[Rfam]
RNA sequence: GAUGGCAGUGACGACUCUUUAAUAUUCAAGCUCAACAGACCAAAUCACAUGUCUCUCGAUAUUCGAGAUUGACCUGUAUGCCGAUUAACCCGCUGAACCGAGCCAUC
Numbered sequence: 001g002a003u004g005g006c007a008g009u010g011a012c013g014a015c016u017c018u019u020u021a022a023u024a025u026u027c028a029a030g031c032u033c034a035a036c037a038g039a040c041c042a043a044a045u046c047a048c049a050u051g052u053c054u055c056u057c058g059a060u061a062u063u064c065g066a067g068a069u070u071g072a073c074c075u076g077u078a079u080g081c082c083g084a085u086u087a088a089c090c091c092g093c094u095g096a097a098c099c100g101a102g103c104c105a106u107c
Stems, first nucleotide, its partner, number of pairs: 001107006
RNA: Small nucleolar RNA Z107/R87
Organism: Digitaria exilis